[Rfam]
RNA sequence: ACAAGACGGUAGACUGGAAAUGCCGCUCUAAGCAGAAAUGUUUAGAUGACAACUCCGUGAAUUCGGUGGAACCCCAAACCACGCCUAGCAGUGCGAAUGGUGGGCAAUACCGAGCCAAGCCUGGUGAAUUGAGAGUAACAUGUAACCAGGAAGGUGUAACGAUCAGGUAGUGAGGAUUCAAAACCAAUAACCUACCCACGAGCGCGGAGCAUCCCAAGCGGAUGAAGAUAUGAUCUGAACUUUAUGGAAACAUAAAG
Numbered sequence: 001a002c003a004a005g006a007c008g009g010u011a012g013a014c015u016g017g018a019a020a021u022g023c024c025g026c027u028c029u030a031a032g033c034a035g036a037a038a039u040g041u042u043u044a045g046a047u048g049a050c051a052a053c054u055c056c057g058u059g060a061a062u063u064c065g066g067u068g069g070a071a072c073c074c075c076a077a078a079c080c081a082c083g084c085c086u087a088g089c090a091g092u093g094c095g096a097a098u099g100g101u102g103g104g105c106a107a108u109a110c111c112g113a114g115c116c117a118a119g120c121c122u123g124g125u126g127a128a129u130u131g132a133g134a135g136u137a138a139c140a141u142g143u144a145a146c147c148a149g150g151a152a153g154g155u156g157u158a159a160c161g162a163u164c165a166g167g168u169a170g171u172g173a174g175g176a177u178u179c180a181a182a183a184c185c186a187a188u189a190a191c192c193u194a195c196c197c198a199c200g201a202g203c204g205c206g207g208a209g210c211a212u213c214c215c216a217a218g219c220g221g222a223u224g225a226a227g228a229u230a231u232g233a234u235c236u237g238a239a240c241u242u243u244a245u246g247g248a249a250a251c252a253u254a255a256a257g
Stems, first nucleotide, its partner, number of pairs: 005027001007025005031042003053209004058204002063113006073104004114155002120149001127143001130140002159236001161235005212222003242255005